[Rfam]
Rfam assigns this 151-nucleotide sequence from Halovulum dunhuangense to the family "Ruegeria cis2 sRNA". The base pairs follow the family's consensus structure, which was predicted with RNAfold. NCBI's taxonomy places the organism under Bacteria, Pseudomonadota, Alphaproteobacteria, Paracoccaceae, Halovulum. A reference for the family is Rivers et al. (2016), "Experimental Identification of Small Non-Coding RNAs in the Model Marine Bacterium Ruegeria pomeroyi DSS-3", Front Microbiol.

RNA sequence: AUGUCUUGUGCGGGAAAUAGUUGACGAACAGCGCGCCGCGCAUCUGGUCGAUGGUGUGGAACAGCGGGUUCCAGUCGAAGAAGGGCAGGAUCGCGUUCGGCAGCAUGUUGGCCACGAAGAACUUGCCGCUCGUGAUCAUGUUGGCGCGCCG
Numbered sequence: 001a002u003g004u005c006u007u008g009u010g011c012g013g014g015a016a017a018u019a020g021u022u023g024a025c026g027a028a029c030a031g032c033g034c035g036c037c038g039c040g041c042a043u044c045u046g047g048u049c050g051a052u053g054g055u056g057u058g059g060a061a062c063a064g065c066g067g068g069u070u071c072c073a074g075u076c077g078a079a080g081a082a083g084g085g086c087a088g089g090a091u092c093g094c095g096u097u098c099g100g101c102a103g104c105a106u107g108u109u110g111g112c113c114a115c116g117a118a119g120a121a122c123u124u125g126c127c128g129c130u131c132g133u134g135a136u137c138a139u140g141u142u143g144g145c146g147c148g149c150c151g
Stems, first nucleotide, its partner, number of pairs: 002030002006028002011023003035055004039050002062151001064149003069079003084145001086143003090139002096132001098128006106120001108117003